The record is a 164-nucleotide RNA sequence from Butyrivibrio sp. INlla14, which matches "Clostridiales-1 RNA" in Rfam. It is annotated as a small RNA. A search with the family's covariance model found it, with a score of 88 bits. Pairs were carried over by alignment from the consensus structure, which is taken from published work.

RNA sequence: GUGAUAUAGGGAAUGAGUAAACACGGUGCAGUGCUUGCACUGGGCAGCGUGUUUAUGAAAUGACCAAGCAGACAUGAGGAAAAAGAUAUGUGAAUGAAAUGAACAUAUCGAUUUCCGAAUGUAUGUAGCAUGGCGAGAGCGAAGCGGAGCCAUGCGCAUAUCAC
Numbered sequence: 001g002u003g004a005u006a007u008a009g010g011g012a013a014u015g016a017g018u019a020a021a022c023a024c025g026g027u028g029c030a031g032u033g034c035u036u037g038c039a040c041u042g043g044g045c046a047g048c049g050u051g052u053u054u055a056u057g058a059a060a061u062g063a064c065c066a067a068g069c070a071g072a073c074a075u076g077a078g079g080a081a082a083a084a085g086a087u088a089u090g091u092g093a094a095u096g097a098a099a100u101g102a103a104c105a106u107a108u109c110g111a112u113u114u115c116c117g118a119a120u121g122u123a124u125g126u127a128g129c130a131u132g133g134c135g136a137g138a139g140c141g142a143a144g145c146g147g148a149g150c151c152a153u154g155c156g157c158a159u160a161u162c163a164c
Stems, first nucleotide, its partner, number of pairs: 001164006010064001014059001017056009027046002029042005068126003072122004078116004085109007128155007139145002